[Rfam]
RNA sequence: CCACCAUCGCCAUCAUCCGGACUAGUCUUUCAGGAGGAUUGCUGCUGGAAGACACAAAUGUGACUUCCAAGUGGUUCCCAAGCCAAUCACUAAACCCUCGGAAGCCACUACUUCCGAGGGUUUUUUCAU
Dot-bracket structure: .......((..(((..((.((........)).))..)))...)).((((((............))))))...................(..(((((((((((((......)))))))))))))..)...
Numbered sequence: 001c002c003a004c005c006a007u008c009g010c011c012a013u014c015a016u017c018c019g020g021a022c023u024a025g026u027c028u029u030u031c032a033g034g035a036g037g038a039u040u041g042c043u044g045c046u047g048g049a050a051g052a053c054a055c056a057a058a059u060g061u062g063a064c065u066u067c068c069a070a071g072u073g074g075u076u077c078c079c080a081a082g083c084c085a086a087u088c089a090c091u092a093a094a095c096c097c098u099c100g101g102a103a104g105c106c107a108c109u110a111c112u113u114c115c116g117a118g119g120g121u122u123u124u125u126u127c128a129u
Stems, first nucleotide, its partner, number of pairs: 008044002012039003017034002020031002046069006089126001092123013
Histidine operon leader: a 129-nucleotide RNA from Tolumonas auensis. The base pairs follow the family's consensus structure, which is taken from published work. The source organism's lineage runs through Bacteria, Pseudomonadati, Aeromonadaceae, Tolumonas and Tolumonas auensis. A search with the family's covariance model found it, with a score of 80 bits. Rfam describes the family as follows. At least 6 amino acid operons are known to be regulated by attenuation. In each a leader sequence of 150-200 bp is found upstream of the first gene in the operon. This leader sequence can assume two different secondary structures known as the terminator and the anti-terminator structure. In each case the leader also codes for very short peptide sequence that is rich in the end product amino acid of the operon. On this family, see Kolter and Yanofsky, Annu Rev Genet 1982: "Attenuation in amino acid biosynthetic operons". Its family is annotated with histidine biosynthetic process in the Gene Ontology.